[Rfam]
RNA sequence: UAAUCCCUGUCGAUCUGAAGGCUUGCGUCCCAACGUUAGCUACUGACGUAGGCGAAACGGGGUUAG
Numbered sequence: 001u002a003a004u005c006c007c008u009g010u011c012g013a014u015c016u017g018a019a020g021g022c023u024u025g026c027g028u029c030c031c032a033a034c035g036u037u038a039g040c041u042a043c044u045g046a047c048g049u050a051g052g053c054g055a056a057a058c059g060g061g062g063u064u065a066g
Base pairs, nucleotide, nucleotide: 001066003064005062006061007060008059009058010057015052016051020041021040022039023038025036026035027034028033
Rfam assigns this 66-nucleotide RNA sequence from Bacillus phage SPbetaL8 to the family "DUF3800-VIII RNA". By type it is a small RNA. The base pairs follow the family's consensus structure, which is taken from published work. Bacteroidetes, Cyanobacteria, Firmicutes, Planctomycetes (1 example), Proteobacteria, Tenericutes (1 example). A search with the family's covariance model found it, with a score of 44 bits. The source organism's lineage runs through Viruses, Duplodnaviria, Heunggongvirae, Uroviricota and Spbetavirus.